RNA sequence: GUGAAGUUGAUCACUACAAACAUAUACCCCUUUGUUUGACCGUGAAAAAUUUCUCCCAUCCCCUUUGUUCGUAUUAAUAGAGAAUGCCUUGCAGUUCGGAAAAACUGCAAGGCGUUUUU
Numbered sequence: 001g002u003g004a005a006g007u008u009g010a011u012c013a014c015u016a017c018a019a020a021c022a023u024a025u026a027c028c029c030c031u032u033u034g035u036u037u038g039a040c041c042g043u044g045a046a047a048a049a050u051u052u053c054u055c056c057c058a059u060c061c062c063c064u065u066u067g068u069u070c071g072u073a074u075u076a077a078u079a080g081a082g083a084a085u086g087c088c089u090u091g092c093a094g095u096u097c098g099g100a101a102a103a104a105c106u107g108c109a110a111g112g113c114g115u116u117u118u119u
Stems, first nucleotide, its partner, number of pairs: 003053006011045004017038006069079001083116014